[Rfam]
Shown here is a 144-nucleotide RNA from Gossypium schwendimanii, a member of the family "MIR7502 microRNA precursor family".
RNA sequence: UGUUAAAGUUUUCAUGCAUUUCUACCAUUAAAAAUUGGUGUAACUGAUAGAAUAAUCAGACAAUUACACGUGACGUGUCAUGUGUACCGCAUGUUGAGGUAUAAGGACCAGUUUUUAACAGUAGAAUGGAAGAAAUUUUUAAUA
Numbered sequence: 001u002g003u004u005a006a007a008g009u010u011u012u013c014a015u016g017c018a019u020u021u022c023u024a025c026c027a028u029u030a031a032a033a034a035u036u037g038g039u040g041u042a043a044c045u046g047a048u049a050g051a052a053u054a055a056u057c058a059g060a061c062a063a064u065u066a067c068a069c070g071u072g073a074c075g076u077g078u079c080a081u082g083u084g085u086a087c088c089g090c091a092u093g094u095u096g097a098g099g100u101a102u103a104a105g106g107a108c109c110a111g112u113u114u115u116u117a118a119c120a121g122u123a124g125a126a127u128g129g130a131a132g133a134a135a136u137u138u139u140u141a142a143u144a
Base pairs, nucleotide, nucleotide: 002143003142004141005140006139007138008137010135011134012133013132015130018127019126021125022124023123024122025121028118029117030116031115032114033113
Description:
A search with the family's covariance model found it, with a score of 96 bits. The family's consensus secondary structure was predicted with RNAalifold.